A member of the RNA family "mir-927 microRNA precursor family" from Cryptotermes secundus, 83 nucleotides long. The base pairs follow the family's consensus structure, which was predicted with RNAalifold. It scores 61 bits against the family's covariance model. Gene Ontology terms of the family: RISC complex and miRNA-mediated post-transcriptional gene silencing. Lineage of the source: Eukaryota > Eumetazoa > Bilateria > Cryptotermitinae > Cryptotermes.
RNA sequence: AAUGACGCAUUUCGUUUCAGAAUUCAAACGCUUUGCCUUUCAAAUGAAACGGUAAAGCGUAGGAAUUCUAAAACAAACGGCGC
Numbered sequence: 001a002a003u004g005a006c007g008c009a010u011u012u013c014g015u016u017u018c019a020g021a022a023u024u025c026a027a028a029c030g031c032u033u034u035g036c037c038u039u040u041c042a043a044a045u046g047a048a049a050c051g052g053u054a055a056a057g058c059g060u061a062g063g064a065a066u067u068c069u070a071a072a073a074c075a076a077a078c079g080g081c082g083c
Stems, first nucleotide, its partner, number of pairs: 010077003014074004019069003023065003028060007036052002